[Rfam]
RNA: c-di-AMP riboswitch aptamer (ydaO/yuaA leader)
Organism: Paenibacillus lutrae
RNA sequence: CAGAAAAGAUUGCCGAAUUUCUUCUCAAACAAAAGGAAGAGAACGGGGGAACCAUUCUGGGUGAAUUGAUCUUGCAACACAGGGAUCAUAGGGGAUACCUUCUACCGAACCCUCCAGCUAACCUCGUAGGCACCGGAAGGAGCAGUA
Numbered sequence: 001c002a003g004a005a006a007a008g009a010u011u012g013c014c015g016a017a018u019u020u021c022u023u024c025u026c027a028a029a030c031a032a033a034a035g036g037a038a039g040a041g042a043a044c045g046g047g048g049g050a051a052c053c054a055u056u057c058u059g060g061g062u063g064a065a066u067u068g069a070u071c072u073u074g075c076a077a078c079a080c081a082g083g084g085a086u087c088a089u090a091g092g093g094g095a096u097a098c099c100u101u102c103u104a105c106c107g108a109a110c111c112c113u114c115c116a117g118c119u120a121a122c123c124u125c126g127u128a129g130g131c132a133c134c135g136g137a138a139g140g141a142g143c144a145g146u147a
Stems, first nucleotide, its partner, number of pairs: 011132004018042008043127006059112003067088007091106002094103001